This 179-nucleotide sequence from Rhodosalinus halophilus belongs to the Rfam family "Ruegeria cis52 sRNA". A search with the family's covariance model found it, with a score of 137 bits. The family has 2 seed sequences and 277 matches in Rfam 15.1. It is annotated as a small RNA. The literature on the family includes a 2016 paper in Front Microbiol by Rivers et al., "Experimental Identification of Small Non-Coding RNAs in the Model Marine Bacterium Ruegeria pomeroyi DSS-3". Taxonomically the source falls in Rhodosalinus (Bacteria, Pseudomonadati, Rhodobacterales, Paracoccaceae).
RNA sequence: UCCGGAGCGCAUGCUUCAUCACGAUGUUGGGGAAACUCACGCCCUUGAGCCGUGCGGUGCGGAUGUAUUGCGCGGUCAUCACCUCCGCCAUCGAGGCCCGCGUCAUCCGGGCGAUGUAGCCCAUGCCGUAAAGCGCGAUGGUGAGCACGGGCAGGAAGAAGUUCUCGAAGUUGGGGUUC
Numbered sequence: 001u002c003c004g005g006a007g008c009g010c011a012u013g014c015u016u017c018a019u020c021a022c023g024a025u026g027u028u029g030g031g032g033a034a035a036c037u038c039a040c041g042c043c044c045u046u047g048a049g050c051c052g053u054g055c056g057g058u059g060c061g062g063a064u065g066u067a068u069u070g071c072g073c074g075g076u077c078a079u080c081a082c083c084u085c086c087g088c089c090a091u092c093g094a095g096g097c098c099c100g101c102g103u104c105a106u107c108c109g110g111g112c113g114a115u116g117u118a119g120c121c122c123a124u125g126c127c128g129u130a131a132a133g134c135g136c137g138a139u140g141g142u143g144a145g146c147a148c149g150g151g152c153a154g155g156a157a158g159a160a161g162u163u164c165u166c167g168a169a170g171u172u173g174g175g176g177u178u179c
Base pairs, nucleotide, nucleotide: 006139008137009136010135012133015130016128020125021124028123029122030121031120038113040111042109046105047104048103051100052099054097055075057073058072059071060070061069062068082096083095084094085093145179147177148175151172154165155164156163157162